[Rfam]
Rfam assigns this 106-nucleotide RNA sequence from Plasmid pCN3 to the family "Tick-borne Flavivirus 3' UTR cis-acting replication element (CRE)". The literature on the family includes a 2017 paper in Front Microbiol by Fernandez-Sanles et al., "Functional Information Stored in the Conserved Structural RNA Domains of Flavivirus Genomes". Rfam's curators write: Flavi_TBFV_CRE is a Tick Borne Flavivirus family. Flavivirus 3' UTR cis-acting replication element (CRE) plays a crucial role in the virus replication and is thought to be needed for the formation of a 'replication complex', it is composed of a small hairpin (sHP) and a larger structural element (3'SL). It has been shown that mutations in sHP are lethal for the virus. It is one of the family's seed sequences.
RNA sequence: UCCCCCUCAUCUGAGGGGGGGCGGUUCUUGUUCUCCCUGAGCCACCAUCACCCAGACACAGGCAGUCUAACAAGGAGGUGAUGUGUGACUCGGAACAACACCCGCU
Number, nucleotide and partner (000 for none) at each position: 001u000002c019003c018004c017005c016006c015007u014008c013009a000010u000011c000012u000013g008014a007015g006016g005017g004018g003019g002020g106021g105022c104023g103024g102025u000026u000027c000028u000029u100030g099031u098032u097033c000034u000035c000036c000037c093038u092039g091040a090041g089042c000043c087044a086045c085046c083047a082048u081049c080050a079051c078052c077053c000054a068055g067056a066057c065058a000059c000060a000061g000062g000063c000064a000065g057066u056067c055068u054069a000070a000071c000072a000073a000074g000075g000076a000077g052078g051079u050080g049081a048082u047083g046084u000085g045086u044087g043088a000089c041090u040091c039092g038093g037094a000095a000096c000097a032098a031099c030100a029101c000102c024103c023104g022105c021106u020